Rfam assigns this 86-nucleotide RNA to the family "c-di-GMP-II-GAG riboswitch aptamer".
Clan: c-di-GMP_II riboswitch clan.
The base pairs follow the family's consensus structure, which is taken from published work.
[Rfam]
RNA sequence: UCACAGGCGGGGGGCGUUGACACGCGGUCCAUCUUGCAGGCCGCCCGGACCGCAUCGAGCCACUGGCGAGACCGCCCUGCAACCGC
Numbered sequence: 001u002c003a004c005a006g007g008c009g010g011g012g013g014g015c016g017u018u019g020a021c022a023c024g025c026g027g028u029c030c031a032u033c034u035u036g037c038a039g040g041c042c043g044c045c046c047g048g049a050c051c052g053c054a055u056c057g058a059g060c061c062a063c064u065g066g067c068g069a070g071a072c073c074g075c076c077c078u079g080c081a082a083c084c085g086c
Base pairs, nucleotide, nucleotide: 002085007080008079009078010077011076013061014060015059022055024053025052026051027050028049029048039073040072042068043067044066045065